The family of this 102-nucleotide RNA sequence from Thermoactinomyces daqus is "Purine riboswitch aptamer".
[Rfam]
RNA sequence: AAAAUAAAAAACGAAUGCACUCAUAUAAUGGCGGGAAUAAGGCCCGCGAGUCUCUACCGAGCUGCCGUAAACAGCCCGACUAUGAGUGAGCAAAAAUGAAGA
Numbered sequence: 001a002a003a004a005u006a007a008a009a010a011a012c013g014a015a016u017g018c019a020c021u022c023a024u025a026u027a028a029u030g031g032c033g034g035g036a037a038u039a040a041g042g043c044c045c046g047c048g049a050g051u052c053u054c055u056a057c058c059g060a061g062c063u064g065c066c067g068u069a070a071a072c073a074g075c076c077c078g079a080c081u082a083u084g085a086g087u088g089a090g091c092a093a094a095a096a097u098g099a100a101g102a
Stems, first nucleotide, its partner, number of pairs: 018088008029049001031047005058078002061075004

Riboswitches are metabolite binding domains within certain messenger RNAs that serve as precision sensors for their corresponding targets. Its family is annotated with purine nucleobase biosynthetic process in the Gene Ontology. Its Rfam clan is "Purine riboswitches". The organism belongs to Thermoactinomyces, within Bacteria.